[Rfam]
RNA sequence: AGCUUUCUGAUGUGGAUGAUACUGCAUCAGGAACUGAUUGGCUGAUGCUCUAGAGCCAACAGUACCUGAUGCAUUGCCUUCAGCAUCGAAAGA
Numbered sequence: 001a002g003c004u005u006u007c008u009g010a011u012g013u014g015g016a017u018g019a020u021a022c023u024g025c026a027u028c029a030g031g032a033a034c035u036g037a038u039u040g041g042c043u044g045a046u047g048c049u050c051u052a053g054a055g056c057c058a059a060c061a062g063u064a065c066c067u068g069a070u071g072c073a074u075u076g077c078c079u080u081c082a083g084c085a086u087c088g089a090a091a092g093a
Stems, first nucleotide, its partner, number of pairs: 023073005029067003033063004039058003

Background
A member of the RNA family "mir-217 microRNA precursor family" from Scophthalmus maximus, 93 nucleotides long. It scores 92 bits against the family's covariance model. For this family Rfam cites "Vertebrate microRNA genes" (Lim et al., Science, 2003). The family's consensus secondary structure was predicted with RNAalifold. NCBI's taxonomy places the organism under Eukaryota, Craniata, Teleostomi, Euteleostomi, Scophthalmus.